[Rfam]
A member of the RNA family "permuted transfer-messenger RNA" from Methylosinus sp. 3S-1, 232 nucleotides long.
It scores 158 bits against the family's covariance model.
Bacterial tmRNA, also known as 10Sa RNA or SsrA, is named for its dual tRNA and mRNA-like properties. Its role is to liberate the mRNA from a stalled ribosome. To accomplish this part of the tmRNA is used as a reading frame that ends in a translation stop signal. The broken mRNA is replaced in the ribosome by the tmRNA and translation of the tmRNA leads to addition of a proteolysis tag to the incomplete protein enabling recognition by a protease. Recently a number of permuted tmRNA genes have been found encoded in two parts. tmRNAs have been identified in eubacteria and some chloroplasts but are absent from archaeal and eukaryote nuclear genomes.
The organism belongs to Methylosinus, within Bacteria.
By type it is a non-coding RNA gene.
Gene Ontology term of the family: RNA catabolic process.
RNA sequence: GGCGAUAAACGAGCAUCGGAAUAAGCCUAUCGGACCCGGGGGCGGUACCCGGCGCCUCCACCCGAGGCCGUGACCUGCAGAAUGCAGUGUGCGCGAUGCGGCCUGGGGCGGGGGCGAAAUAGGAUCGACGAGGGUGUAAAGGGUGUUUUUUCGCUCGGCAUGAUACCGCCGUUAUCGGGUCAAUCCUAUAGUUGCCAACGACAACUAUGCUCCGGUGGCCGUCGCCGCGUAA
Numbered sequence: 001g002g003c004g005a006u007a008a009a010c011g012a013g014c015a016u017c018g019g020a021a022u023a024a025g026c027c028u029a030u031c032g033g034a035c036c037c038g039g040g041g042g043c044g045g046u047a048c049c050c051g052g053c054g055c056c057u058c059c060a061c062c063c064g065a066g067g068c069c070g071u072g073a074c075c076u077g078c079a080g081a082a083u084g085c086a087g088u089g090u091g092c093g094c095g096a097u098g099c100g101g102c103c104u105g106g107g108g109c110g111g112g113g114g115c116g117a118a119a120u121a122g123g124a125u126c127g128a129c130g131a132g133g134g135u136g137u138a139a140a141g142g143g144u145g146u147u148u149u150u151u152c153g154c155u156c157g158g159c160a161u162g163a164u165a166c167c168g169c170c171g172u173u174a175u176c177g178g179g180u181c182a183a184u185c186c187u188a189u190a191g192u193u194g195c196c197a198a199c200g201a202c203a204a205c206u207a208u209g210c211u212c213c214g215g216u217g218g219c220c221g222u223c224g225c226c227g228c229g230u231a232a
Stems, first nucleotide, its partner, number of pairs: 001155005014145004026134003030131003036052005053116007156171004